[Rfam]
Nucleotides: 094
Stems, first nucleotide, its partner, number of pairs: 003053001005051003011032004
Number, partner (000 for none) and nucleotide at each position: 001000g002000a003053g004000c005051c006050u007049u008000g009000g010000g011032g012031g013030c014029a015000a016000c017000u018000c019000c020000u021000c022000a023000g024000g025000u026000u027000c028000u029014u030013g031012c032011c033000u034000g035000g036000c037000g038000g039000a040000g041000c042000u043000g044000g045000u046000g047000u048000g049007a050006a051005g052000a053003c054000a055000u056000g057000u058000c059000a060000a061000u062000c063000a064000c065000c066000g067000c068000u069000g070000u071000c072000a073000g074000c075000c076000g077000c078000g079000a080000g081000c082000u083000g084000g085000g086000a087000g088000u089000u090000g091000a092000u093000c094000c
A member of the RNA family "GRIK4 3 prime UTR element" from Polarella glacialis, 94 nucleotides long. The base pairs follow the family's consensus structure, which was predicted with CMfinder. The family has 8 seed sequences and 71 matches in Rfam 15.1. The match comes from Rfam's covariance-model search (39 bits). By type it is a non-coding RNA gene. Lineage of the source: Eukaryota > Sar > Alveolata > Suessiaceae > Polarella.